This 75-nucleotide sequence from Micromonospora haikouensis belongs to the Rfam family "SAH (S-adenosyl-L-homocysteine) riboswitch aptamer". It scores 38 bits against the family's covariance model. The source organism's lineage runs through Bacteria, Bacillati, Micromonosporales, Micromonosporaceae and Micromonospora. The family's consensus secondary structure is taken from published work. For this family Rfam cites "Riboswitches that sense S-adenosylhomocysteine and activate genes involved in coenzyme recycling" (Wang et al., Mol Cell, 2008).
[Rfam]
Nucleotides: 075
Stems, first nucleotide, its partner, number of pairs: 002047007021034005
Number, partner (000 for none) and nucleotide at each position: 001000c002047g003046g004045g005044u006043c007042g008041a009000g010000a011000g012000g013000c014000g015000c016000u017000g018000c019000g020000a021034c022033g023032g024031a025030u026000g027000a028000c029000c030025a031024u032023c033022c034021g035000c036000c037000a038000c039000g040000c041008u042007c043006g044005g045004c046003c047002u048000g049000u050000u051000c052000c053000u054000u055000g056000g057000u058000c059000c060000a061000a062000g063000g064000g065000c066000g067000c068000c069000u070000c071000c072000c073000g074000c075000u